[Rfam]
RNA sequence: ACCAGCUCUGUUGGGACAAGAGAACGGUCUUGUUUUGGAAGGAAGACCGUCGUUUUGUCCCAAGAGAGCUGGU
Numbered sequence: 001a002c003c004a005g006c007u008c009u010g011u012u013g014g015g016a017c018a019a020g021a022g023a024a025c026g027g028u029c030u031u032g033u034u035u036u037g038g039a040a041g042g043a044a045g046a047c048c049g050u051c052g053u054u055u056u057g058u059c060c061c062a063a064g065a066g067a068g069c070u071g072g073u
Stems, first nucleotide, its partner, number of pairs: 001073009011063011024050008033041003

This 73-nucleotide RNA from Macaca mulatta belongs to the Rfam family "mir-3122 microRNA precursor family". The organism belongs to Macaca, within Eukaryota.